Shown here is a 78-nucleotide RNA sequence from Petromyzon marinus, a member of the family "mir-216 microRNA precursor family". Rfam links the family to the GO terms miRNA-mediated post-transcriptional gene silencing and RISC complex. Clan: mir-216 clan. The family has 57 seed sequences and 1,667 matches in Rfam 15.1. On this family, see Shao et al., Gene 2008: "Identification of novel chicken microRNAs and analysis of their genomic organization". Pairs were carried over by alignment from the consensus structure, which was predicted with WAR.

[Rfam]
RNA sequence: UCUCGGCCCAAUCUCAGCUGGCAACUGUGAGUGCUGUGUUGGGAAUUGCCCACGGGAGUCACUGGGAUUAGGCUGUGA
Number, nucleotide and partner (000 for none) at each position: 001u000002c000003u000004c075005g074006g073007c072008c000009c000010a069011a068012u067013c066014u065015c064016a063017g062018c000019u000020g060021g059022c058023a000024a000025c000026u054027g053028u052029g051030a000031g049032u000033g000034c000035u000036g000037u000038g000039u000040u000041g000042g000043g000044a000045a000046u000047u000048g000049c031050c000051c029052a028053c027054g026055g000056g000057a000058g022059u021060c020061a000062c017063u016064g015065g014066g013067a012068u011069u010070a000071g000072g007073c006074u005075g004076u000077g000078a000